[Rfam]
RNA sequence: AAAACCUUUAACUAAGUCCAGAGAGGCUUGCAAGGAUACGGAAAAUUUAAUUUGGUUUACUGACAGCUUAAAGAUGAACUUUUUUAGCGCAUUUAUUCUGUCAGUAAAUUACCAGUUUUUUAGUACACUUGUAAGUUCUCUUACAAGUGUUUUUUUGU
Numbered sequence: 001a002a003a004a005c006c007u008u009u010a011a012c013u014a015a016g017u018c019c020a021g022a023g024a025g026g027c028u029u030g031c032a033a034g035g036a037u038a039c040g041g042a043a044a045a046u047u048u049a050a051u052u053u054g055g056u057u058u059a060c061u062g063a064c065a066g067c068u069u070a071a072a073g074a075u076g077a078a079c080u081u082u083u084u085u086a087g088c089g090c091a092u093u094u095a096u097u098c099u100g101u102c103a104g105u106a107a108a109u110u111a112c113c114a115g116u117u118u119u120u121u122a123g124u125a126c127a128c129u130u131g132u133a134a135g136u137u138c139u140c141u142u143a144c145a146a147g148u149g150u151u152u153u154u155u156u157g158u
Stems, first nucleotide, its partner, number of pairs: 003037001005035004013030006063101004069095004075089002122153002125150011